[Rfam]
RNA sequence: CAGAUGAGUGGGCAAAUUGGGGUUUCUUAGCGGCAUUUGCCAGUACUAGGAUUGCAAUGCCCUUGGAAAUCCCAAAUGUGCCCAUGAAA
Numbered sequence: 001c002a003g004a005u006g007a008g009u010g011g012g013c014a015a016a017u018u019g020g021g022g023u024u025u026c027u028u029a030g031c032g033g034c035a036u037u038u039g040c041c042a043g044u045a046c047u048a049g050g051a052u053u054g055c056a057a058u059g060c061c062c063u064u065g066g067a068a069a070u071c072c073c074a075a076a077u078g079u080g081c082c083c084a085u086g087a088a089a
Stems, first nucleotide, its partner, number of pairs: 008085006018074009029063002032061005038056003

A member of the RNA family "mir-2788 microRNA precursor family" from Acanthoscelides obtectus, 89 nucleotides long. The base pairs follow the family's consensus structure, which was predicted with RNAalifold.